[Rfam]
RNA sequence: AGUCGAUGCGAUUGGCGGUUUUUUUCCUCCCAGUGCCGCUGCAUCGGCUGUUCCCCUCUGGAGGUUCAAACCUUCACACCUACAGGGCCCAGGCUUUCGCUUGAGGCCUUUUUUU
Numbered sequence: 001a002g003u004c005g006a007u008g009c010g011a012u013u014g015g016c017g018g019u020u021u022u023u024u025u026c027c028u029c030c031c032a033g034u035g036c037c038g039c040u041g042c043a044u045c046g047g048c049u050g051u052u053c054c055c056c057u058c059u060g061g062a063g064g065u066u067c068a069a070a071c072c073u074u075c076a077c078a079c080c081u082a083c084a085g086g087g088c089c090c091a092g093g094c095u096u097u098c099g100c101u102u103g104a105g106g107c108c109u110u111u112u113u114u115u
Stems, first nucleotide, its partner, number of pairs: 001049005007043003015039004059076007084110006090103004